[Rfam]
RNA sequence: GUAGUCGGAUUUAUAUCAAUCCACAUGUGUUGAGGUGGGUUGGAGUGGAACUUGAACUAAAUUCCACCCCAAUCCACUCUAAAUGGAUUGAGGUCAAUUCAACA
Numbered sequence: 001g002u003a004g005u006c007g008g009a010u011u012u013a014u015a016u017c018a019a020u021c022c023a024c025a026u027g028u029g030u031u032g033a034g035g036u037g038g039g040u041u042g043g044a045g046u047g048g049a050a051c052u053u054g055a056a057c058u059a060a061a062u063u064c065c066a067c068c069c070c071a072a073u074c075c076a077c078u079c080u081a082a083a084u085g086g087a088u089u090g091a092g093g094u095c096a097a098u099u100c101a102a103c104a
Stems, first nucleotide, its partner, number of pairs: 004103002007100005013094002016091008030082003035077009045067003
Dot-bracket structure: ...((.(((((.((.((((((((......(((..(((((((((.(((.................))).)))))))))..))).)))))))).)).))))).)).